Small nucleolar RNA ACA64: a 131-nucleotide RNA sequence from Sarcophilus harrisii. It scores 92 bits against the family's covariance model. The family has 30 seed sequences and 9,537 matches in Rfam 15.1. The literature on the family includes a 2006 paper in RNA by Schattner et al., "A computational screen for mammalian pseudouridylation guide H/ACA RNAs". The family's consensus secondary structure was predicted with WAR. Rfam classes the family as an H/ACA-box small nucleolar RNA.
[Rfam]
RNA sequence: GCCGUCUGAAAAUCACCUGCGGCCUGCUUCUGUGGCCACGCGUGAGACCGCGGCGCCCACAGCCACCAGGGGUCUUUAAGCUUAUCCCCCAUAGACCGAGUGUGGGGGAUAAAACCCAGGCCCCGACAAGU
Numbered sequence: 001g002c003c004g005u006c007u008g009a010a011a012a013u014c015a016c017c018u019g020c021g022g023c024c025u026g027c028u029u030c031u032g033u034g035g036c037c038a039c040g041c042g043u044g045a046g047a048c049c050g051c052g053g054c055g056c057c058c059a060c061a062g063c064c065a066c067c068a069g070g071g072g073u074c075u076u077u078a079a080g081c082u083u084a085u086c087c088c089c090c091a092u093a094g095a096c097c098g099a100g101u102g103u104g105g106g107g108g109a110u111a112a113a114a115c116c117c118a119g120g121c122c123c124c125g126a127c128a129a130g131u
Stems, first nucleotide, its partner, number of pairs: 006053003013045004021037004069124001071122005082112005090104003